[Rfam]
RNA sequence: ACGUCACCCACUGGAGAGAGUUGGUUCGUCGCAUCCGAUGCGCGGCACCAGCCACCGAAGGAGCAAGACCCGGCAUGCAAUGGCCUGCUAGGUUGAAUCUCUCAGGUAAAGAGGACAGCAGGGUCUCC
Numbered sequence: 001a002c003g004u005c006a007c008c009c010a011c012u013g014g015a016g017a018g019a020g021u022u023g024g025u026u027c028g029u030c031g032c033a034u035c036c037g038a039u040g041c042g043c044g045g046c047a048c049c050a051g052c053c054a055c056c057g058a059a060g061g062a063g064c065a066a067g068a069c070c071c072g073g074c075a076u077g078c079a080a081u082g083g084c085c086u087g088c089u090a091g092g093u094u095g096a097a098u099c100u101c102u103c104a105g106g107u108a109a110a111g112a113g114g115a116c117a118g119c120a121g122g123g124u125c126u127c128c
Base pairs, nucleotide, nucleotide: 007122008121011118012117013116020052021051022050023049024048025047054107055106056105057103058102061101062100063099067094068093069092070091
About this RNA: The record is a 128-nucleotide RNA from Lampropedia puyangensis, which matches "Glycine riboswitch aptamer" in Rfam. The source organism's lineage runs through Bacteria, Pseudomonadati, Pseudomonadota, Burkholderiales and Lampropedia. Gene Ontology term of the family: glycine biosynthetic process.